U1 spliceosomal RNA: a 164-nucleotide RNA from Otolemur garnettii.
The family's consensus secondary structure is taken from published work.
U1 is a small nuclear RNA (snRNA) component of the spliceosome (involved in pre-mRNA splicing). Its 5' end forms complementary base pairs with the 5' splice junction, thus defining the 5' donor site of an intron.

[Rfam]
Nucleotides: 164
Stems, first nucleotide, its partner, number of pairs: 012122004016048006023042005049090004054086001056083003060079004092117003095113003099109002138163001140161004146155003
Number, partner (000 for none) and nucleotide at each position: 001000a002000u003000a004000c005000u006000u007000a008000c009000c010000u011000g012122g013121c014120a015119g016048g017047g018046g019045a020044g021043a022000u023042a024041c025040u026039g027038u028000g029000a030000u031000c032000a033000c034000a035000a036000a037000g038027g039026u040025g041024g042023u043021u044020u045019u046018c047017c048016c049090a050089g051088g052087g053000c054086g055000a056083g057082g058081c059000u060079u061078a062077u063076c064000c065000c066000u067000c068000g069000c070000a071000c072000u073000c074000c075000a076063g077062a078061u079060g080000u081058g082057c083056u084000g085000a086054c087052c088051c089050u090049u091000g092117u093116g094115a095113u096112u097111u098000c099109c100108c101000c102000a103000a104000u105000u106000g107000u108100g109099g110000g111097a112096a113095a114000c115094u116093c117092g118000a119015c120014u121013g122012c123000a124000u125000a126000a127000u128000u129000u130000a131000u132000a133000g134000u135000a136000g137000u138163g139000a140161g141160g142159g143158a144000c145000u146155g147154c148153a149000u150000u151000c152000g153148u154147g155146u156000u157000c158143u159142c160141c161140c162000c163138u164000g